[Rfam]
RNA: Alphaproteobacteria transfer-messenger RNA
RNA sequence: CCCUUUGAAUCCGCCCGCAACCUGCCUAUAUUCAGAUCGUUCCCUCGGGAACUAUGGGCAUAAACGCGCAUGUAAUAAGCGGAUCGGACCCGGGGGCGGUACCCGGCGGCUCCACCAAAUCACCCUUCGUUGGGGGGAGGCAUGGGGCCGAAACAGGAUCGACGAACGUGUAAAGAUGUAGCUUUGUCCCGGUGAGAUACCACCGUUAUCGGUUCACAUUGCAUAAUUGCCAACGACAAUCGUGCUCCGGUCGCUCUGGCUGCGUAAGCAGUCCGAAAGAUCGAAAUCUAAGUCCUUUCGCCUAGCAGCGUAAGGCGGGGUUCGCAGGCACCUGGCAACAGAAGCCUGCACU
Numbered sequence: 001c002c003c004u005u006u007g008a009a010u011c012c013g014c015c016c017g018c019a020a021c022c023u024g025c026c027u028a029u030a031u032u033c034a035g036a037u038c039g040u041u042c043c044c045u046c047g048g049g050a051a052c053u054a055u056g057g058g059c060a061u062a063a064a065c066g067c068g069c070a071u072g073u074a075a076u077a078a079g080c081g082g083a084u085c086g087g088a089c090c091c092g093g094g095g096g097c098g099g100u101a102c103c104c105g106g107c108g109g110c111u112c113c114a115c116c117a118a119a120u121c122a123c124c125c126u127u128c129g130u131u132g133g134g135g136g137g138a139g140g141c142a143u144g145g146g147g148c149c150g151a152a153a154c155a156g157g158a159u160c161g162a163c164g165a166a167c168g169u170g171u172a173a174a175g176a177u178g179u180a181g182c183u184u185u186g187u188c189c190c191g192g193u194g195a196g197a198u199a200c201c202a203c204c205g206u207u208a209u210c211g212g213u214u215c216a217c218a219u220u221g222c223a224u225a226a227u228u229g230c231c232a233a234c235g236a237c238a239a240u241c242g243u244g245c246u247c248c249g250g251u252c253g254c255u256c257u258g259g260c261u262g263c264g265u266a267a268g269c270a271g272u273c274c275g276a277a278a279g280a281u282c283g284a285a286a287u288c289u290a291a292g293u294c295c296u297u298u299c300g301c302c303u304a305g306c307a308g309c310g311u312a313a314g315g316c317g318g319g320g321u322u323c324g325c326a327g328g329c330a331c332c333u334g335g336c337a338a339c340a341g342a343a344g345c346c347u348g349c350a351c352u
Base pairs, nucleotide, nucleotide: 039052040051041050042049043048056189057188058187059186060185066182067181068179069178070177071176080168081167084165085164086163090106091105092104093103094102107150108149109148110147111146112145113144190205191204192203193202196215197214199213200212201211318333319332320331321330324349325348326347327346328345329344